[Rfam]
A member of the RNA family "c-di-GMP-I riboswitch aptamer" from Fusobacterium varium, 76 nucleotides long.

RNA sequence: GUUAAAAUUCGGCAAAGUAAUGGAAACAUUAUGACGCAAAGCUAUAGGGCCUGUAAAAUGGUAGCCAGUUGCAAUU
Dot-bracket structure: ...........((...((((((....))))))...))..((((...(((((........)))..))))))......
Numbered sequence: 001g002u003u004a005a006a007a008u009u010c011g012g013c014a015a016a017g018u019a020a021u022g023g024a025a026a027c028a029u030u031a032u033g034a035c036g037c038a039a040a041g042c043u044a045u046a047g048g049g050c051c052u053g054u055a056a057a058a059u060g061g062u063a064g065c066c067a068g069u070u071g072c073a074a075u076u
Stems, first nucleotide, its partner, number of pairs: 012037002017032006040070004047066002049062003
Record summary:
A search with the family's covariance model found it, with a score of 57 bits.